[Rfam]
Rfam assigns this 86-nucleotide RNA from Papaver somniferum to the family "mir-156 microRNA precursor family". The organism belongs to Papaver, within Eukaryota. On this family, see Reinhart et al., Genes Dev 2002: "MicroRNAs in plants".
RNA sequence: GUGAUAGAAGAGAGUGAGCACACAUGAUUUUCUUGCAUGAAUCCUCGCAUGCUUGAAACACUGCGUGCUUACUCUUUAUCUGUCAC
Numbered sequence: 001g002u003g004a005u006a007g008a009a010g011a012g013a014g015u016g017a018g019c020a021c022a023c024a025u026g027a028u029u030u031u032c033u034u035g036c037a038u039g040a041a042u043c044c045u046c047g048c049a050u051g052c053u054u055g056a057a058a059c060a061c062u063g064c065g066u067g068c069u070u071a072c073u074c075u076u077u078a079u080c081u082g083u084c085a086c
Stems, first nucleotide, its partner, number of pairs: 001086008010076012023063002